A member of the RNA family "SAM (S-adenosyl methionine) riboswitch aptamer" from Streptomyces tsukubensis, 110 nucleotides long. Gene Ontology terms of the family: S-adenosylmethionine metabolic process and regulation of gene expression. A search with the family's covariance model found it, with a score of 94 bits. The base pairs follow the family's consensus structure, which is taken from published work.
RNA sequence: GGUGACGAGCGUCAGCAGCAGGCCCUGGCCGGCUGACCGGCAACCCUCCCUCGCGGCGGGGUGCCCCAGGUGACCACCCGGCGGGGUGAGAGUCCCCGCAAGCGCGAUCC
Numbered sequence: 001g002g003u004g005a006c007g008a009g010c011g012u013c014a015g016c017a018g019c020a021g022g023c024c025c026u027g028g029c030c031g032g033c034u035g036a037c038c039g040g041c042a043a044c045c046c047u048c049c050c051u052c053g054c055g056g057c058g059g060g061g062u063g064c065c066c067c068a069g070g071u072g073a074c075c076a077c078c079c080g081g082c083g084g085g086g087u088g089a090g091a092g093u094c095c096c097c098g099c100a101a102g103c104g105c106g107a108u109c110c
Stems, first nucleotide, its partner, number of pairs: 001078004009038001011037006021030002039065003044061003048056002081099006087092001